[Rfam]
RNA: STAXI RNA
RNA sequence: UGUCGUUUUCGGACGACCAUCCAAUGUCUCAGCACUCUGUGAGAGGCGCCUUCGGGUGAGUGCCAUCCAAUGUUUCAUGUGACCUGUGAGAAACGCCUUCGGGUGGUCACAAUAUCCUCGUAGCCUGAAAGAGGAUGCCCAUGUGGCGGUACCUCC
Numbered sequence: 001u002g003u004c005g006u007u008u009u010c011g012g013a014c015g016a017c018c019a020u021c022c023a024a025u026g027u028c029u030c031a032g033c034a035c036u037c038u039g040u041g042a043g044a045g046g047c048g049c050c051u052u053c054g055g056g057u058g059a060g061u062g063c064c065a066u067c068c069a070a071u072g073u074u075u076c077a078u079g080u081g082a083c084c085u086g087u088g089a090g091a092a093a094c095g096c097c098u099u100c101g102g103g104u105g106g107u108c109a110c111a112a113u114a115u116c117c118u119c120g121u122a123g124c125c126u127g128a129a130a131g132a133g134g135a136u137g138c139c140c141a142u143g144u145g146g147c148g149g150u151a152c153c154u155c156c
Stems, first nucleotide, its partner, number of pairs: 002017006026047005032063006048057003072094005079110006095104003114136005120153001123150003137147003